[Rfam]
Nucleotides: 081
Stems, first nucleotide, its partner, number of pairs: 001081006007074003014067009025056002028054005034049003
Number, partner (000 for none) and nucleotide at each position: 001081g002080u003079c004078g005077c006076u007074g008073u009072a010000u011000u012000g013000c014067u015066g016065g017064g018063g019062u020061u021060u022059c023000c024000u025056a026055g027000c028054g029053g030052c031051a032050u033000g034049u035048g036047c037000c038000u039000u040000c041000u042000u043000c044000u045000a046000u047036g048035c049034a050032a051031u052030g053029c054028c055026c056025u057000u058000g059022g060021a061020a062019a063018u064017c065016c066015c067014a068000a069000a070000c071000g072009u073008g074007c075000u076006g077005g078004c079003g080002a081001c
The record is an 81-nucleotide RNA from Heliconius melpomene, which matches "mir-2788 microRNA precursor family" in Rfam. The source organism's lineage runs through Eukaryota, Opisthokonta, Aparaglossata, Neolepidoptera and Heliconius.